[Rfam]
RNA sequence: AUGCAGGAACUGUUACAAUACAACUGAAGUGUUUUAUUGUCGUUCCUCCUGCUUAAAGCAAUUGAUGCAUAAAUUAUCUCUGUUUAGCACAAUUCCAUAGCUAGGCAGAGACGCUUGGCCUCAAACAU
Number, nucleotide and partner (000 for none) at each position: 001a000002u000003g052004c051005a050006g049007g048008a000009a000010c000011u000012g000013u000014u000015a040016c039017a038018a037019u036020a035021c000022a033023a032024c031025u000026g000027a000028a000029g000030u000031g024032u023033u022034u000035u020036a019037u018038u017039g016040u015041c000042g000043u000044u000045c000046c000047u000048c007049c006050u005051g004052c003053u000054u000055a000056a000057a000058g000059c000060a000061a000062u000063u000064g000065a000066u000067g000068c000069a000070u000071a000072a000073a000074u000075u000076a000077u000078c000079u109080c108081u107082g106083u000084u104085u103086a102087g101088c000089a000090c000091a000092a000093u000094u000095c000096c000097a000098u000099a000100g000101c087102u086103a085104g084105g000106c082107a081108g080109a079110g000111a000112c000113g000114c000115u000116u000117g000118g000119c000120c000121u000122c000123a000124a000125a000126c000127a000128u000

Small nucleolar RNA SNORA63: a 128-nucleotide sequence from Myotis lucifugus. A search with the family's covariance model found it, with a score of 99 bits. Its family is annotated with RNA processing and nucleolus in the Gene Ontology. About the family: E3 belongs to the H/ACA class of snoRNAs and is involved in the processing of eukaryotic pre-rRNA and has regions of complementarity to 18S rRNA. E3 is encoded in introns in the gene for protein synthesis initiation factor 4AII.